Rfam assigns this 171-nucleotide RNA sequence from Anisodus acutangulus to the family "MIR168 microRNA precursor family". On this family, see Jagadeeswaran et al., New Phytol 2009: "Cloning and characterization of small RNAs from Medicago truncatula reveals four novel legume-specific microRNA families". Gene Ontology terms of the family: miRNA-mediated post-transcriptional gene silencing and RISC complex.
[Rfam]
RNA sequence: GUCACGGCGGCCUCUCAUUCGCUUGGUGCAGGUCGGGACCUUCCUCGCCGGAGACAAUGACGUCUGCUAACGGCGACGGUGACGUCAGCGUACCGGUAAAUACUUUUUUAAUUGUCCAUGACAAAGUUUCGGUCCCGCCUUGCAUCAACUGAAUCGGAGACUGCGGUGAAU
Numbered sequence: 001g002u003c004a005c006g007g008c009g010g011c012c013u014c015u016c017a018u019u020c021g022c023u024u025g026g027u028g029c030a031g032g033u034c035g036g037g038a039c040c041u042u043c044c045u046c047g048c049c050g051g052a053g054a055c056a057a058u059g060a061c062g063u064c065u066g067c068u069a070a071c072g073g074c075g076a077c078g079g080u081g082a083c084g085u086c087a088g089c090g091u092a093c094c095g096g097u098a099a100a101u102a103c104u105u106u107u108u109u110a111a112u113u114g115u116c117c118a119u120g121a122c123a124a125a126g127u128u129u130c131g132g133u134c135c136c137g138c139c140u141u142g143c144a145u146c147a148a149c150u151g152a153a154u155c156g157g158a159g160a161c162u163g164c165g166g167u168g169a170a171u
Stems, first nucleotide, its partner, number of pairs: 013158002017154004023148010034137005040131001